[Rfam]
RNA sequence: CGGGGAAAGAAGACCCUGUUAAGCUUAACUCUAGUUUAACAUUGUGAAAAGAUAUAGGGGGUGUAGAAUAGGUAGGAGCUUUGGCGCUAGUAAAAUACUACUACCCUUAUCGUUUUUUUACUUAUUUAAUAAAGCGGAGCUAGGCCUUACUACCUAACUUCUAGCGUUUAAGGUCCUUUGUAGGCUAAUCUAGGUUAAAGAUAUUGUUAGGUAGGGAGUUUAGCUAGGGCGGCACAUCUAUUAAACUAUAACGCAGGUGUCCUAAGGGGGACUUAUAGAGAAUAGAAAUCUCUAGUAGAGCAAAAGGGUAAAAGUCCCCUUAAUUUUGAUUUUUAGUGUAAAUACAAACUAUAAAAGUGUGGCCUAUCGAUCCUUUAGUCCCUCGAAAUUUGAGGCUAGAGGUGCCAGAAAAGUUACCACAGGGAUAACUGGCUUGUGGCAGCCAAGCGUUCAUAGCGACGUUGCUUUUUGAUCCUUCGAUGUCGGCUCUUCCUAUCAUACCGAAGCAGAAUUCGGUAAGCGUUGGAUUGUUCACCCACUAAUAGGGAACGUGAGCUGGGUUUAGACCGUCGUGAGACAGGUUAGUUUUACCCUA
Numbered sequence: 001c002g003g004g005g006a007a008a009g010a011a012g013a014c015c016c017u018g019u020u021a022a023g024c025u026u027a028a029c030u031c032u033a034g035u036u037u038a039a040c041a042u043u044g045u046g047a048a049a050a051g052a053u054a055u056a057g058g059g060g061g062u063g064u065a066g067a068a069u070a071g072g073u074a075g076g077a078g079c080u081u082u083g084g085c086g087c088u089a090g091u092a093a094a095a096u097a098c099u100a101c102u103a104c105c106c107u108u109a110u111c112g113u114u115u116u117u118u119u120a121c122u123u124a125u126u127u128a129a130u131a132a133a134g135c136g137g138a139g140c141u142a143g144g145c146c147u148u149a150c151u152a153c154c155u156a157a158c159u160u161c162u163a164g165c166g167u168u169u170a171a172g173g174u175c176c177u178u179u180g181u182a183g184g185c186u187a188a189u190c191u192a193g194g195u196u197a198a199a200g201a202u203a204u205u206g207u208u209a210g211g212u213a214g215g216g217a218g219u220u221u222a223g224c225u226a227g228g229g230c231g232g233c234a235c236a237u238c239u240a241u242u243a244a245a246c247u248a249u250a251a252c253g254c255a256g257g258u259g260u261c262c263u264a265a266g267g268g269g270g271a272c273u274u275a276u277a278g279a280g281a282a283u284a285g286a287a288a289u290c291u292c293u294a295g296u297a298g299a300g301c302a303a304a305a306g307g308g309u310a311a312a313a314g315u316c317c318c319c320u321u322a323a324u325u326u327u328g329a330u331u332u333u334u335a336g337u338g339u340a341a342a343u344a345c346a347a348a349c350u351a352u353a354a355a356a357g358u359g360u361g362g363c364c365u366a367u368c369g370a371u372c373c374u375u376u377a378g379u380c381c382c383u384c385g386a387a388a389u390u391u392g393a394g395g396c397u398a399g400a401g402g403u404g405c406c407a408g409a410a411a412a413g414u415u416a417c418c419a420c421a422g423g424g425a426u427a428a429c430u431g432g433c434u435u436g437u438g439g440c441a442g443c444c445a446a447g448c449g450u451u452c453a454u455a456g457c458g459a460c461g462u463u464g465c466u467u468u469u470u471g472a473u474c475c476u477u478c479g480a481u482g483u484c485g486g487c488u489c490u491u492c493c494u495a496u497c498a499u500a501c502c503g504a505a506g507c508a509g510a511a512u513u514c515g516g517u518a519a520g521c522g523u524u525g526g527a528u529u530g531u532u533c534a535c536c537c538a539c540u541a542a543u544a545g546g547g548a549a550c551g552u553g554a555g556c557u558g559g560g561u562u563u564a565g566a567c568c569g570u571c572g573u574g575a576g577a578c579a580g581g582u583u584a585g586u587u588u589u590a591c592c593c594u595a
Stems, first nucleotide, its partner, number of pairs: 003594003007589002015423004020419001022415005028219004035211007044121010054110007071102005078085002125199005136191003143154002171186002174183001223233003236258004241253001261362002267319006273299002276294006300309002324348003329343004350359003373401006381395004432473001434471001436470001438466006447457002484559001485557004489551001490548005497522001500517006524538003528534001565583004569578003